[Rfam]
RNA: Small nucleolar RNA snoR97
RNA sequence: CUUUUCUAGUGGGUGUAGGGUCUGAAAAACUCGUAAAUUGGGUGUCGUCAUCAGCUUUUUCUCUUGUAAUUCCACGAGAUUUGAGUUAAAUAACGGCACAAAAUCC
Numbered sequence: 001c002u003u004u005u006c007u008a009g010u011g012g013g014u015g016u017a018g019g020g021u022c023u024g025a026a027a028a029a030c031u032c033g034u035a036a037a038u039u040g041g042g043u044g045u046c047g048u049c050a051u052c053a054g055c056u057u058u059u060u061c062u063c064u065u066g067u068a069a070u071u072c073c074a075c076g077a078g079a080u081u082u083g084a085g086u087u088a089a090a091u092a093a094c095g096g097c098a099c100a101a102a103a104u105c106c
Stems, first nucleotide, its partner, number of pairs: 042099006053087005060079004